[Rfam]
RNA sequence: CCACAACUUUAAUGUGGAGGUACUUGCUUUGCUCUUUAAUAACAGUAAGUGCUUCCAUGUUAUAGUGGUGG
Numbered sequence: 001c002c003a004c005a006a007c008u009u010u011a012a013u014g015u016g017g018a019g020g021u022a023c024u025u026g027c028u029u030u031g032c033u034c035u036u037u038a039a040u041a042a043c044a045g046u047a048a049g050u051g052c053u054u055c056c057a058u059g060u061u062a063u064a065g066u067g068g069u070g071g
Base pairs, nucleotide, nucleotide: 001071002070003069006066007065008064010062011061012060013059014058015057016056017055018054019053020052021051022050023049024048025047026046027045028044
mir-302 microRNA precursor family: a 71-nucleotide RNA sequence from Lepidothrix coronata. Rfam links the family to the GO terms RISC complex and miRNA-mediated post-transcriptional gene silencing. On this family, see Suh et al., Dev Biol 2004: "Human embryonic stem cells express a unique set of microRNAs". NCBI's taxonomy places the organism under Eukaryota, Deuterostomia, Archosauria, Coelurosauria, Lepidothrix. The base pairs follow the family's consensus structure, which was predicted with RNAalifold.